[Rfam]
RNA sequence: AGGUGAUGCCUCCUUACCUUUAUCAAUGGAGGUACUCGGCUAUGCUGUGGGCUUGAAUGCCUUAGACACUUUGUUGUCGGUGGUGUGGUGUGAGGGUGGGUUGGAUGCCCG
Numbered sequence: 001a002g003g004u005g006a007u008g009c010c011u012c013c014u015u016a017c018c019u020u021u022a023u024c025a026a027u028g029g030a031g032g033u034a035c036u037c038g039g040c041u042a043u044g045c046u047g048u049g050g051g052c053u054u055g056a057a058u059g060c061c062u063u064a065g066a067c068a069c070u071u072u073g074u075u076g077u078c079g080g081u082g083g084u085g086u087g088g089u090g091u092g093a094g095g096g097u098g099g100g101u102u103g104g105a106u107g108c109c110c111g
Base pairs, nucleotide, nucleotide: 001019002018003017004016007034008033009032010031011030012029013028035094036093037092038091039089040088041087042086043085044084045083046082049062050061051060052059065078066077067076068075097111098110099109100108101107

epsC RNA: a 111-nucleotide RNA sequence. It scores 102 bits against the family's covariance model. The family's RNA type in Rfam is cis-regulatory element.